[Rfam]
RNA: Eukaryotic large subunit ribosomal RNA, nucleotides 429 to 805
Organism: Bugula neritina
RNA sequence: CGGACGGAACCGGGCGAGUUCGCCGCCGCCAUUCAGCCGCCGCCCCUCGCGGGCGACGGUGCACUUGGCGGCGACGGAGCGCGACGACCGCCUGACGAGUCGCGAGAAGCCCGGCGGCAAGGUGGCGACGCGCGUACGCGCGCCGUGUUACAGGCCGCCGAGGCGUUGGCCGACUCGACGGGCGAGGAGCGCCUGCGACGCACUCCCCUCUUACCUUGCGGGAGUGACUCGACGCGGUGGACUGGCGGACGCCGGCGGCGAACUGCGUGCAGUUCGCCGCCGCGCGCUCCGUCUGUCGUGCCGCGCGGUGUCACGCGUCAUCCAGGGUCCGAGUCGCGUGGUUCCCGGCACUCCGUCCGACCCGUCUUGAAACACGG
Numbered sequence: 001c002g003g004a005c006g007g008a009a010c011c012g013g014g015c016g017a018g019u020u021c022g023c024c025g026c027c028g029c030c031a032u033u034c035a036g037c038c039g040c041c042g043c044c045c046c047u048c049g050c051g052g053g054c055g056a057c058g059g060u061g062c063a064c065u066u067g068g069c070g071g072c073g074a075c076g077g078a079g080c081g082c083g084a085c086g087a088c089c090g091c092c093u094g095a096c097g098a099g100u101c102g103c104g105a106g107a108a109g110c111c112c113g114g115c116g117g118c119a120a121g122g123u124g125g126c127g128a129c130g131c132g133c134g135u136a137c138g139c140g141c142g143c144c145g146u147g148u149u150a151c152a153g154g155c156c157g158c159c160g161a162g163g164c165g166u167u168g169g170c171c172g173a174c175u176c177g178a179c180g181g182g183c184g185a186g187g188a189g190c191g192c193c194u195g196c197g198a199c200g201c202a203c204u205c206c207c208c209u210c211u212u213a214c215c216u217u218g219c220g221g222g223a224g225u226g227a228c229u230c231g232a233c234g235c236g237g238u239g240g241a242c243u244g245g246c247g248g249a250c251g252c253c254g255g256c257g258g259c260g261a262a263c264u265g266c267g268u269g270c271a272g273u274u275c276g277c278c279g280c281c282g283c284g285c286g287c288u289c290c291g292u293c294u295g296u297c298g299u300g301c302c303g304c305g306c307g308g309u310g311u312c313a314c315g316c317g318u319c320a321u322c323c324a325g326g327g328u329c330c331g332a333g334u335c336g337c338g339u340g341g342u343u344c345c346c347g348g349c350a351c352u353c354c355g356u357c358c359g360a361c362c363c364g365u366c367u368u369g370a371a372a373c374a375c376g377g
Stems, first nucleotide, its partner, number of pairs: 001359008010348003020074007079339007362377004